[Rfam]
RNA sequence: CUUCGCUGAUGACUCCCUGUUCGUGCCGUCGUGUCUGGGCCACUGAGACCUGGUGAUGGAGAUGAGGAUCUGAGGAAG
Numbered sequence: 001c002u003u004c005g006c007u008g009a010u011g012a013c014u015c016c017c018u019g020u021u022c023g024u025g026c027c028g029u030c031g032u033g034u035c036u037g038g039g040c041c042a043c044u045g046a047g048a049c050c051u052g053g054u055g056a057u058g059g060a061g062a063u064g065a066g067g068a069u070c071u072g073a074g075g076a077a078g
Stems, first nucleotide, its partner, number of pairs: 001078004
RNA: Small nucleolar RNA SNORD66